[Rfam]
RNA sequence: UGUCUUCGCUGAACUAGAGAUCGGCGAAAGAUGUAUGAUUAACACUCUCAAUAUUUUAGGAGUAAAUAAUGUCUCUAAGCGUAGAAAAAAAAGCAGAAAUCGUUGCUGAAUUUGGUCGUGAUAGC
Numbered sequence: 001u002g003u004c005u006u007c008g009c010u011g012a013a014c015u016a017g018a019g020a021u022c023g024g025c026g027a028a029a030g031a032u033g034u035a036u037g038a039u040u041a042a043c044a045c046u047c048u049c050a051a052u053a054u055u056u057u058a059g060g061a062g063u064a065a066a067u068a069a070u071g072u073c074u075c076u077a078a079g080c081g082u083a084g085a086a087a088a089a090a091a092a093g094c095a096g097a098a099a100u101c102g103u104u105g106c107u108g109a110a111u112u113u114g115g116u117c118g119u120g121a122u123a124g125c
Base pairs, nucleotide, nucleotide: 007026008025009024010023011022012021056079057078059076060075061074062073
The family of this 125-nucleotide sequence from Volucribacter psittacicida is "Ribosomal S15 leader".
The base pairs follow the family's consensus structure, which is taken from published work.
Rfam describes the family as follows. The E. coli Ribosomal S15 gene 5' UTR can form two alternative structures.
A reference for the family is Benard et al. (1996), "Pseudoknot and translational control in the expression of the S15 ribosomal protein", Biochimie.
Rfam links the family to the GO term regulation of translation, ncRNA-mediated.
Taxonomically the source falls in Volucribacter (Bacteria, Pseudomonadati, Pseudomonadota, Pasteurellaceae).